[Rfam]
RNA sequence: UCCAUCGUGAGGAGGAACCUGAAGGAAGCCGGAGGCAAAGUCCUGGCCCGAUGAACAAGAACCACAUAGAAGACUGACUUGGGGUGGGUGAGUUUCUAAACAAAACAAAGCCCAACACUACACGGACCCCAUCCAGUAAAUGUGGCGGGAGAUGGGAUGAAAGUUCUUGCU
Numbered sequence: 001u002c003c004a005u006c007g008u009g010a011g012g013a014g015g016a017a018c019c020u021g022a023a024g025g026a027a028g029c030c031g032g033a034g035g036c037a038a039a040g041u042c043c044u045g046g047c048c049c050g051a052u053g054a055a056c057a058a059g060a061a062c063c064a065c066a067u068a069g070a071a072g073a074c075u076g077a078c079u080u081g082g083g084g085u086g087g088g089u090g091a092g093u094u095u096c097u098a099a100a101c102a103a104a105a106c107a108a109a110g111c112c113c114a115a116c117a118c119u120a121c122a123c124g125g126a127c128c129c130c131a132u133c134c135a136g137u138a139a140a141u142g143u144g145g146c147g148g149g150a151g152a153u154g155g156g157a158u159g160a161a162a163g164u165u166c167u168u169g170c171u
Stems, first nucleotide, its partner, number of pairs: 001016003005012002028171001030169003035164002040158006047149004062145006073137003080131005086113004092106004
Dot-bracket structure: (((.((....)).)))...........(.(((..((...((((((.((((...........((((((.....(((....(((((.((((..((((.......))))...)))).............)))))...)))..))))))))))...))))))....))..))).)
Annotation: This 171-nucleotide sequence from Hydrogenispora ethanolica belongs to the Rfam family "Group II catalytic intron D1-D4-3". For this family Rfam cites "The ins and outs of group II introns" (Bonen and Vogel, Trends Genet, 2001). NCBI's taxonomy places the organism under Bacteria, Bacillati, Bacillota, Hydrogenispora.